The record is an 83-nucleotide sequence from Cnephaeus nilssonii, which matches "mir-574 microRNA precursor family" in Rfam. Rfam 15.1 lists 4,084 matches to the family in 7 species. The organism belongs to Cnephaeus, within Eukaryota. Gene Ontology terms of the family: RISC complex and miRNA-mediated post-transcriptional gene silencing.
Nucleotides: 083
Base pairs, nucleotide, nucleotide: 010075012073013072014071015070016069017068018067019066020065021064024061026059027058028057029056030055031054035050036049037048
Number, partner (000 for none) and nucleotide at each position: 001000a002000g003000g004000c005000c006000u007000g008000u009000a010075g011000a012073g013072a014071g015070a016069g017068a018067g019066g020065c021064a022000g023000g024061g025000u026059c027058u028057g029056a030055u031054c032000c033000c034000c035050a036049g037048c038000c039000u040000u041000u042000g043000u044000g045000g046000c047000a048037g049036c050035u051000a052000u053000u054031g055030a056029u057028c058027a059026g060000a061024u062000g063000a064021u065020g066019c067018c068017u069016c070015u071014c072013u073012c074000a075010u076000u077000c078000u079000c080000u081000c082000c083000u